[Rfam]
RNA sequence: GUUGGGUACGGUGACAUGUACCCAGUGACUGUCGGAGGGAAGCUGGUGGGGUCCAUGUGUGCCAUCGCAGGUGUGCUGACCAUUUCAUUGCCUGUUCCGGUCAUCGUGUCUAAC
Numbered sequence: 001g002u003u004g005g006g007u008a009c010g011g012u013g014a015c016a017u018g019u020a021c022c023c024a025g026u027g028a029c030u031g032u033c034g035g036a037g038g039g040a041a042g043c044u045g046g047u048g049g050g051g052u053c054c055a056u057g058u059g060u061g062c063c064a065u066c067g068c069a070g071g072u073g074u075g076c077u078g079a080c081c082a083u084u085u086c087a088u089u090g091c092c093u094g095u096u097c098c099g100g101u102c103a104u105c106g107u108g109u110c111u112a113a114c
Base pairs, nucleotide, nucleotide: 001114002113004111005110007108008107009106010105011104013102014101015100018097020095021094037077038076040074049063050062
Dot-bracket structure: ((.((.(((((.(((..(.((...............((.(........((...........))..........).))................)).)..))).))))).)).))
Rfam assigns this 114-nucleotide sequence from Astyanax mexicanus to the family "Potassium channel RNA editing signal". Pairs were carried over by alignment from the consensus structure, which is taken from published work. The match comes from Rfam's covariance-model search (104 bits). Rfam classes the family as a cis-regulatory element. From the family's description: This family represents a group of sequences related to the human potassium channel Kv1.1 hairpin element which directs the efficient modification of an adenosine to inosine by an adenosine deaminase acting on RNA (ADAR). Rfam 15.1 lists 14,095 matches to the family in 1,000 species. Lineage of the source: Eukaryota > Bilateria > Teleostomi > Characiformes > Astyanax.